[Rfam]
Nematode snoRNA ceN125: a 140-nucleotide RNA from Caenorhabditis angaria.
It is annotated as an H/ACA-box small nucleolar RNA.
Lineage of the source: Eukaryota > Metazoa > Rhabditoidea > Rhabditidae > Caenorhabditis.
RNA sequence: UACCCCCACGACAACAAAUUCCAGUCGCGCGUUUUCUUCGCAACGCGACUGAGCCGACGUCGUGGGAAAGUGUACACCAUGGUCGAUUGAUCCCGCUUACAUGGGUUUCUUAGUGAAGGCGGUUUGCACGGAGGCCAAAA
Numbered sequence: 001u002a003c004c005c006c007c008a009c010g011a012c013a014a015c016a017a018a019u020u021c022c023a024g025u026c027g028c029g030c031g032u033u034u035u036c037u038u039c040g041c042a043a044c045g046c047g048a049c050u051g052a053g054c055c056g057a058c059g060u061c062g063u064g065g066g067a068a069a070g071u072g073u074a075c076a077c078c079a080u081g082g083u084c085g086a087u088u089g090a091u092c093c094c095g096c097u098u099a100c101a102u103g104g105g106u107u108u109c110u111u112a113g114u115g116a117a118g119g120c121g122g123u124u125u126g127c128a129c130g131g132a133g134g135c136c137a138a139a140a
Stems, first nucleotide, its partner, number of pairs: 005066008022051008053058001081136001083134002088128002090125001093122004100115003

Record summary: The literature on the family includes a 2007 paper in BMC Mol Biol by Jia et al., "Systematic identification of non-coding RNA 2,2,7-trimethylguanosine cap structures in Caenorhabditis elegans".